RNA sequence: UACUGGCCGACGCGCGGAUUUGCGCGUGCCUGUGGCUGAUGUUCCUUGUGGGCCAAGCGGAGGCGGCGUUGG
Numbered sequence: 001u002a003c004u005g006g007c008c009g010a011c012g013c014g015c016g017g018a019u020u021u022g023c024g025c026g027u028g029c030c031u032g033u034g035g036c037u038g039a040u041g042u043u044c045c046u047u048g049u050g051g052g053c054c055a056a057g058c059g060g061a062g063g064c065g066g067c068g069u070u071g072g
Base pairs, nucleotide, nucleotide: 006023007022009020010019024067025066027065028064029063030062031061034058037055038054
This 72-nucleotide RNA belongs to the Rfam family "Hepatitis C virus stem-loop SL2531 and SL2549AU". The base pairs follow the family's consensus structure, which was predicted with RNAfold. Rfam's curators put it in the seed alignment. On this family, see Pirakitikulr et al., Mol Cell 2016: "The Coding Region of the HCV Genome Contains a Network of Regulatory RNA Structures". Rfam classes the family as a cis-regulatory element.